[Rfam]
RNA sequence: GGACCAGCCUCUGGAGAGACCUAUUAUAGGCGCCGAAGGAGCAAAUCUUUUUUAAAGAUAAACUCUCAGGCAAAAGGACAGAGGAAGUGAA
Number, nucleotide and partner (000 for none) at each position: 001g000002g000003a000004c000005c000006a000007g000008c084009c083010u082011c081012u080013g079014g000015a000016g000017a000018g000019a000020c030021c029022u028023a027024u000025u000026a000027u023028a022029g021030g020031c000032g071033c070034c069035g067036a066037a000038g000039g065040a064041g063042c000043a000044a000045a000046u057047c000048u000049u000050u000051u000052u000053u000054a000055a000056a000057g046058a000059u000060a000061a000062a000063c041064u040065c039066u036067c035068a000069g034070g033071c032072a000073a000074a000075a000076g000077g000078a000079c013080a012081g011082a010083g009084g008085a000086a000087g000088u000089g000090a000091a000
Glycine riboswitch aptamer: a 91-nucleotide sequence from Desulfonispora thiosulfatigenes. Rfam's curators write: This family represents the bacterial glycine riboswitch. The match comes from Rfam's covariance-model search (68 bits).